The record is a 183-nucleotide sequence from Frateuria aurantia, which matches "FMN riboswitch aptamer (RFN element)" in Rfam. Gene Ontology term of the family: FMN binding. The match comes from Rfam's covariance-model search (91 bits).
[Rfam]
RNA sequence: UGACGUCUUCAGGGCGGGGUGUGAUUCCCCACCGGCGGUAGGCGUCCAGCCCGUCUCGACGGGUCGGAUGCGAGCCCGCGAGCGCUUUCCGAUGAGGGAAAGGUCAGCAGAUCCGGUCAGAUGCCGGAGCCGACGGUAGGAAACCGAUAGGUUUCCUGAAAGUCCGGAUGAAAGAAGACGGCU
Numbered sequence: 001u002g003a004c005g006u007c008u009u010c011a012g013g014g015c016g017g018g019g020u021g022u023g024a025u026u027c028c029c030c031a032c033c034g035g036c037g038g039u040a041g042g043c044g045u046c047c048a049g050c051c052c053g054u055c056u057c058g059a060c061g062g063g064u065c066g067g068a069u070g071c072g073a074g075c076c077c078g079c080g081a082g083c084g085c086u087u088u089c090c091g092a093u094g095a096g097g098g099a100a101a102g103g104u105c106a107g108c109a110g111a112u113c114c115g116g117u118c119a120g121a122u123g124c125c126g127g128a129g130c131c132g133a134c135g136g137u138a139g140g141a142a143a144c145c146g147a148u149a150g151g152u153u154u155c156c157u158g159a160a161a162g163u164c165c166g167g168a169u170g171a172a173a174g175a176a177g178a179c180g181g182c183u
Stems, first nucleotide, its partner, number of pairs: 004180007017029003033132002035079004082108002112128005134166003
Dot-bracket structure: ...(((((((......(((.......)))...((((((.....................................))))..((.......................))...(((((.......)))))..)).(((...........................))).......)))))))...